[Rfam]
RNA sequence: GACCCAAGCAGCCUCUCUUGAUGAUUCUUCUUCCUGAGCAGCUCUAGUGAUGAGCAAACUGAGCCUCUAAGAAGUUGACUGAAGGGGCUGCUUUCUC
Numbered sequence: 001g002a003c004c005c006a007a008g009c010a011g012c013c014u015c016u017c018u019u020g021a022u023g024a025u026u027c028u029u030c031u032u033c034c035u036g037a038g039c040a041g042c043u044c045u046a047g048u049g050a051u052g053a054g055c056a057a058a059c060u061g062a063g064c065c066u067c068u069a070a071g072a073a074g075u076u077g078a079c080u081g082a083a084g085g086g087g088c089u090g091c092u093u094u095c096u097c
Stems, first nucleotide, its partner, number of pairs: 007092009